[Rfam]
RNA: Alphaproteobacteria transfer-messenger RNA
Organism: Lichenibacterium minor
RNA sequence: GCCCUUGAAGUCGGAGCCCGUCCGGCCUAUUCUCCGCUCGUGGCUACGGCCAAUAUGGCGAUAAACGGAAUUCGGAAUAAACCAUACGGACCCCGGGGCGGUACCGGGCGGGUCCACCUAAGCCUUCGACGUCGAAGGUUUCGGUGGGCCCGAAAUAGGAUUGACGUGGGUGUAAAGGGAUCUCUUUUGCUCGGCAUUGUACCGCCGUUAUCGGGCUAAACCUAUAGUUGCCAAUGACAACUAUGCUCCGGUGGCCGUCGCCGCGUAAUGCGGUGAAGGUACUGGGAAUCAAGCCCUAGGGGGUAGCACUUCUAGGCGGGGUCCGGAGGCACCUGGCAACAGAAGCCUCCACU
Numbered sequence: 001g002c003c004c005u006u007g008a009a010g011u012c013g014g015a016g017c018c019c020g021u022c023c024g025g026c027c028u029a030u031u032c033u034c035c036g037c038u039c040g041u042g043g044c045u046a047c048g049g050c051c052a053a054u055a056u057g058g059c060g061a062u063a064a065a066c067g068g069a070a071u072u073c074g075g076a077a078u079a080a081a082c083c084a085u086a087c088g089g090a091c092c093c094c095g096g097g098g099c100g101g102u103a104c105c106g107g108g109c110g111g112g113u114c115c116a117c118c119u120a121a122g123c124c125u126u127c128g129a130c131g132u133c134g135a136a137g138g139u140u141u142c143g144g145u146g147g148g149c150c151c152g153a154a155a156u157a158g159g160a161u162u163g164a165c166g167u168g169g170g171u172g173u174a175a176a177g178g179g180a181u182c183u184c185u186u187u188u189g190c191u192c193g194g195c196a197u198u199g200u201a202c203c204g205c206c207g208u209u210a211u212c213g214g215g216c217u218a219a220a221c222c223u224a225u226a227g228u229u230g231c232c233a234a235u236g237a238c239a240a241c242u243a244u245g246c247u248c249c250g251g252u253g254g255c256c257g258u259c260g261c262c263g264c265g266u267a268a269u270g271c272g273g274u275g276a277a278g279g280u281a282c283u284g285g286g287a288a289u290c291a292a293g294c295c296c297u298a299g300g301g302g303g304u305a306g307c308a309c310u311u312c313u314a315g316g317c318g319g320g321g322u323c324c325g326g327a328g329g330c331a332c333c334u335g336g337c338a339a340c341a342g343a344a345g346c347c348u349c350c351a352c353u
Stems, first nucleotide, its partner, number of pairs: 041052004057191005067184002070181004082170002086167003092108005109152007192207004197218001199216001202214002319334004325350006